The family of this 64-nucleotide RNA from Mytilus coruscus is "mir-375 microRNA precursor family".
NCBI's taxonomy places the organism under Eukaryota, Protostomia, Spiralia, Bivalvia, Mytilus.
The base pairs follow the family's consensus structure, which was predicted with RNAalifold.
On this family, see Chen et al., Genes Dev 2005: "The developmental miRNA profiles of zebrafish as determined by small RNA cloning".
It scores 55 bits against the family's covariance model.
RNA sequence: GCUGACCCGAGCCUCUCGUAACAAUGCUUAUAAUAAUGUUUUGUUCGUUUGGCUCGCGUUACUA
Numbered sequence: 001g002c003u004g005a006c007c008c009g010a011g012c013c014u015c016u017c018g019u020a021a022c023a024a025u026g027c028u029u030a031u032a033a034u035a036a037u038g039u040u041u042u043g044u045u046c047g048u049u050u051g052g053c054u055c056g057c058g059u060u061a062c063u064a
Base pairs, nucleotide, nucleotide: 001063003061005059006058008056009055010054011053012052013051017047018046021044022043023042024041026039027038